[Rfam]
RNA: SmY spliceosomal RNA
RNA sequence: GUAAUGUCCAAAUGUCGUUCAGGGCCUUACCCAAGACCCAGCGAUCAAUUUUUGGGUGUCCGCCCAGGAGGGUGGACAA
Numbered sequence: 001g002u003a004a005u006g007u008c009c010a011a012a013u014g015u016c017g018u019u020c021a022g023g024g025c026c027u028u029a030c031c032c033a034a035g036a037c038c039c040a041g042c043g044a045u046c047a048a049u050u051u052u053u054g055g056g057u058g059u060c061c062g063c064c065c066a067g068g069a070g071g072g073u074g075g076a077c078a079a
Stems, first nucleotide, its partner, number of pairs: 022039003026035003057078009